[Rfam]
RNA sequence: UGACCAUCAUAAAGAGUUAUCUUUCCCUGAUCAAGGCCAUACGGACAGCCGGGUCAAAUGCCGC
Numbered sequence: 001u002g003a004c005c006a007u008c009a010u011a012a013a014g015a016g017u018u019a020u021c022u023u024u025c026c027c028u029g030a031u032c033a034a035g036g037c038c039a040u041a042c043g044g045a046c047a048g049c050c051g052g053g054u055c056a057a058a059u060g061c062c063g064c
Stems, first nucleotide, its partner, number of pairs: 001056005006031004
RNA: Streptococcus sRNA SpF59 (ldcC RNA)
Organism: Lachnospiraceae bacterium KM106-2